About this RNA
The family of this 106-nucleotide RNA sequence from Bacillus sp. FJAT-49711 is "SAM riboswitch aptamer (S box leader)". The base pairs follow the family's consensus structure, which is taken from published work. NCBI's taxonomy places the organism under Bacteria, Bacillati, Bacillota, Bacilli, Bacillus.
Nucleotides: 106
Base pairs, nucleotide, nucleotide: 004103005102006101007100008099013043014042015041016040017039021032022031023030026079027078028077029076044071045070046069047068049067050066051064052063053062054061075098080095081094082093083092084091085090
Number, partner (000 for none) and nucleotide at each position: 001000u002000a003000g004103u005102u006101a007100u008099c009000u010000a011000g012000a013043g014042u015041g016040g017039c018000u019000a020000a021032g022031a023030g024000a025000u026079c027078u028077g029076g030023c031022u032021c033000g034000u035000g036000g037000a038000c039017g040016c041015c042014a043013c044071a045070g046069c047068a048000a049067c050066c051064u052063g053062c054061u055000u056000g057000a058000a059000a060000a061054a062053g063052u064051a065000a066050g067049g068047u069046g070045c071044u072000a073000a074000u075098a076029c077028c078027a079026g080095c081094a082093a083092a084091g085090c086000a087000a088000u089000g090085g091084c092083u093082u094081u095080g096000g097000a098075u099008g100007a101006u102005a103004a104000a105000a106000c